Description:
The family of this 118-nucleotide RNA sequence from Morella rubra is "Small nucleolar RNA snoR104". A search with the family's covariance model found it, with a score of 113 bits. For this family Rfam cites "Experimental RNomics: identification of 140 candidates for small non-messenger RNAs in the plant Arabidopsis thaliana" (Marker et al., Curr Biol, 2002).
RNA sequence: GGGAAGCAUCCGAAAGAUGAGAUGUUUCCUGAUACAACCUUCCAACAGAAAACCUCUGUAGUUUCCUGCUUGCAGUACUCGAGCAAGUUCUGCAAGUCUCAAAUUACCAGAGACAUGA
Numbered sequence: 001g002g003g004a005a006g007c008a009u010c011c012g013a014a015a016g017a018u019g020a021g022a023u024g025u026u027u028c029c030u031g032a033u034a035c036a037a038c039c040u041u042c043c044a045a046c047a048g049a050a051a052a053c054c055u056c057u058g059u060a061g062u063u064u065c066c067u068g069c070u071u072g073c074a075g076u077a078c079u080c081g082a083g084c085a086a087g088u089u090c091u092g093c094a095a096g097u098c099u100c101a102a103a104u105u106a107c108c109a110g111a112g113a114c115a116u117g118a
Stems, first nucleotide, its partner, number of pairs: 001030003005026006055111003068097008077088003